[Rfam]
RNA sequence: CGAGCUCAGUAGCGAGAGCUUUUAACCUAAGUUGGGGCUUUAAGUUGGUUGGACAUUGCAAUCGGUCCUGUUCGGUAGGGCGUGGUGAGUGUCAUUUGUUGGCUCGCCCACUCCAAGUUGGGAGUUGGGUCAUGUGAAUCAGGCUAAAGCUUGGAUUAUGUGGUUCCUAGAGAGGAGGGUACUGCGUCAGGCUGGUUUCACAGAGGAGCGAGUACCUCCCGUUUCUUACGGUGGAAGGAUAACGAGUCAUUGCACCCCAGGCCUCACUCGCCGGGUGAGCCGACUCAGUUGGACAACCAAUUUU
Numbered sequence: 001c002g003a004g005c006u007c008a009g010u011a012g013c014g015a016g017a018g019c020u021u022u023u024a025a026c027c028u029a030a031g032u033u034g035g036g037g038c039u040u041u042a043a044g045u046u047g048g049u050u051g052g053a054c055a056u057u058g059c060a061a062u063c064g065g066u067c068c069u070g071u072u073c074g075g076u077a078g079g080g081c082g083u084g085g086u087g088a089g090u091g092u093c094a095u096u097u098g099u100u101g102g103c104u105c106g107c108c109c110a111c112u113c114c115a116a117g118u119u120g121g122g123a124g125u126u127g128g129g130u131c132a133u134g135u136g137a138a139u140c141a142g143g144c145u146a147a148a149g150c151u152u153g154g155a156u157u158a159u160g161u162g163g164u165u166c167c168u169a170g171a172g173a174g175g176a177g178g179g180u181a182c183u184g185c186g187u188c189a190g191g192c193u194g195g196u197u198u199c200a201c202a203g204a205g206g207a208g209c210g211a212g213u214a215c216c217u218c219c220c221g222u223u224u225c226u227u228a229c230g231g232u233g234g235a236a237g238g239a240u241a242a243c244g245a246g247u248c249a250u251u252g253c254a255c256c257c258c259a260g261g262c263c264u265c266a267c268u269c270g271c272c273g274g275g276u277g278a279g280c281c282g283a284c285u286c287a288g289u290u291g292g293a294c295a296a297c298c299a300a301u302u303u304u
Stems, first nucleotide, its partner, number of pairs: 001036001002021006026035002042303010054291002056288003062283005069277008078264004083259003087256001089255003093252002100249007108238002112235004117229002120226006127166011139154006167172001174219005183212001185210003192203003
The family of this 304-nucleotide sequence from Macleaya cordata is "Plant signal recognition particle RNA".
The organism belongs to Macleaya, within Eukaryota.
Pairs were carried over by alignment from the consensus structure, which is taken from published work.
For this family Rfam cites "Kinship in the SRP RNA family" (Rosenblad et al., RNA Biol, 2009).
The match comes from Rfam's covariance-model search (214 bits).